Record summary
The family of this 279-nucleotide sequence from Trachymyrmex cornetzi is "RNase MRP". The family's RNA type in Rfam is ribozyme.
RNA sequence: AAGUUCCCUCGGGAAACACCGCGGAGCCACUAUCGGAGUCUGCAAUGACUCUUUAUCGCUCUGAGGAAAGUCCCUGGACCCGUGGCAGAAAGUGCCGUAGCUUUUAGCUAUCAGCCUCCGUCGUCUUCGCGAAUUUCAGGAGAGGAAGCUUUGGCCGAUCCUUCGCAAUGGGCGUGAGAGUGUUUGUCAAAGUAAAGUAAUGUGUGUUGAAACGUUUCUGCUCUUCUGAAAAGAAACAGCAACGUUUGAACCGAACAGGGCUUAUCGUACGAGGAAACU
Numbered sequence: 001a002a003g004u005u006c007c008c009u010c011g012g013g014a015a016a017c018a019c020c021g022c023g024g025a026g027c028c029a030c031u032a033u034c035g036g037a038g039u040c041u042g043c044a045a046u047g048a049c050u051c052u053u054u055a056u057c058g059c060u061c062u063g064a065g066g067a068a069a070g071u072c073c074c075u076g077g078a079c080c081c082g083u084g085g086c087a088g089a090a091a092g093u094g095c096c097g098u099a100g101c102u103u104u105u106a107g108c109u110a111u112c113a114g115c116c117u118c119c120g121u122c123g124u125c126u127u128c129g130c131g132a133a134u135u136u137c138a139g140g141a142g143a144g145g146a147a148g149c150u151u152u153g154g155c156c157g158a159u160c161c162u163u164c165g166c167a168a169u170g171g172g173c174g175u176g177a178g179a180g181u182g183u184u185u186g187u188c189a190a191a192g193u194a195a196a197g198u199a200a201u202g203u204g205u206g207u208u209g210a211a212a213c214g215u216u217u218c219u220g221c222u223c224u225u226c227u228g229a230a231a232a233g234a235a236a237c238a239g240c241a242a243c244g245u246u247u248g249a250a251c252c253g254a255a256c257a258g259g260g261c262u263u264a265u266c267g268u269a270c271g272a273g274g275a276a277a278c279u
Stems, first nucleotide, its partner, number of pairs: 002279004007274005014207001016205004022063006036051005068263003072260004084096004098110004120173003127168001129166002138162004148155002210247006
A search with the family's covariance model found it, with a score of 92 bits. Pairs were carried over by alignment from the consensus structure, which is taken from published work. Rfam links the family to the GO terms rRNA processing, ribonuclease MRP complex and ribonuclease MRP activity.